[Rfam]
RNA sequence: UCCCUGCUUUUCCUCCCUGAGCAGGUGCCUUCACGUGAUGACAGCGUCAAGGCUUUCAAGCCCCGGCCCACGGCCGGGGCUCUUUCUU
Numbered sequence: 001u002c003c004c005u006g007c008u009u010u011u012c013c014u015c016c017c018u019g020a021g022c023a024g025g026u027g028c029c030u031u032c033a034c035g036u037g038a039u040g041a042c043a044g045c046g047u048c049a050a051g052g053c054u055u056u057c058a059a060g061c062c063c064c065g066g067c068c069c070a071c072g073g074c075c076g077g078g079g080c081u082c083u084u085u086c087u088u
Base pairs, nucleotide, nucleotide: 003025004024005023006022007021008020027053028052029051030050035047036046037045060080061079062078063077064076065075066074067073
Record summary
Shown here is an 88-nucleotide RNA from Ideonella aquatica, a member of the family "Burkholderia RNA 7 (anti-hemB)". By type it is a small RNA. Taxonomically the source falls in Ideonella (Bacteria, Pseudomonadati, Pseudomonadota, Burkholderiales). Gene Ontology terms of the family: protein binding and bacterial biofilm matrix. This RNA motif was identified by computational search in b-proteobacteria Burkholderia. Co-purified with Hfq, expression confirmed by Northern blot. The match comes from Rfam's covariance-model search (62 bits).